[Rfam]
RNA sequence: CUUGUCAUGUCUUACCCAAUCUCUGGUGCAGCCUUGACAACAGGCUGCACCAGAGACUGGGUAAGACAUGACAAG
Number, nucleotide and partner (000 for none) at each position: 001c075002u074003u073004g072005u071006c070007a069008u068009g067010u066011c065012u064013u063014a062015c061016c060017c059018a058019a000020u056021c055022u054023c053024u052025g051026g050027u049028g048029c047030a046031g045032c044033c043034u042035u000036g000037a000038c000039a000040a000041c000042a034043g033044g032045c031046u030047g029048c028049a027050c026051c025052a024053g023054a022055g021056a020057c000058u018059g017060g016061g015062u014063a013064a012065g011066a010067c009068a008069u007070g006071a005072c004073a003074a002075g001
Rfam assigns this 75-nucleotide sequence from Gorilla gorilla to the family "mir-3130 microRNA precursor family". Rfam 15.1 lists 6 matches to the family in 3 species. Its family is annotated with miRNA-mediated post-transcriptional gene silencing and RISC complex in the Gene Ontology.